[Rfam]
RNA sequence: AUGGAGAUGAGGAUUCUUUCCCCGAAUGAUCGACAGUGAUUCCAAUCUGCUGCAUAAUCUCUUUGGAGAUAAGCCAGAUUACCUGAUCCAU
Numbered sequence: 001a002u003g004g005a006g007a008u009g010a011g012g013a014u015u016c017u018u019u020c021c022c023c024g025a026a027u028g029a030u031c032g033a034c035a036g037u038g039a040u041u042c043c044a045a046u047c048u049g050c051u052g053c054a055u056a057a058u059c060u061c062u063u064u065g066g067a068g069a070u071a072a073g074c075c076a077g078a079u080u081a082c083c084u085g086a087u088c089c090a091u
Base pairs, nucleotide, nucleotide: 001091002090003089004088005087
The family of this 91-nucleotide RNA sequence from Taxus chinensis is "Small nucleolar RNA Z103". Rfam links the family to the GO terms nucleolus and RNA processing. The family has 12 seed sequences and 2,844 matches in Rfam 15.1. By type it is a C/D-box small nucleolar RNA. A search with the family's covariance model found it, with a score of 64 bits. For this family Rfam cites "The high diversity of snoRNAs in plants: identification and comparative study of 120 snoRNA genes from Oryza sativa" (Chen et al., Nucleic Acids Res, 2003). The organism belongs to Taxus, within Eukaryota. The base pairs follow the family's consensus structure, which was predicted with PFOLD.